Shown here is a 180-nucleotide RNA from Papaver nudicaule, a member of the family "U2 spliceosomal RNA". On this family, see Zwieb, Nucleic Acids Res 1997: "The uRNA database". Pairs were carried over by alignment from the consensus structure, which is taken from published work. Rfam classes the family as a spliceosomal small nuclear RNA.
[Rfam]
RNA sequence: CCAGCCUAAAUACAACAAAUCAGCUAUAUAACAAGUUUAAUAUCUGAUAUGUGGGUCAUCGGCUCACACGAUAUUAAAUUAUUUUUUUUCAUAGGGGAGUUCCCAUCACAGCAACUUGUUGCUGGGGUCCUCGCGCGUUGCCUCUGCGUUGCACUACUGCGGAGGCCUGGCGCCCUCCUA
Dot-bracket structure: .(((.......................................)))....(((((((...))))))).............................(((..(((......((((....))))..)))..)))..((((((.((((((...........))))))...)))))).......
Its Rfam clan is "U2 clan". Rfam links the family to the GO terms U2 snRNP, pre-mRNA branch point binding and mRNA branch site recognition.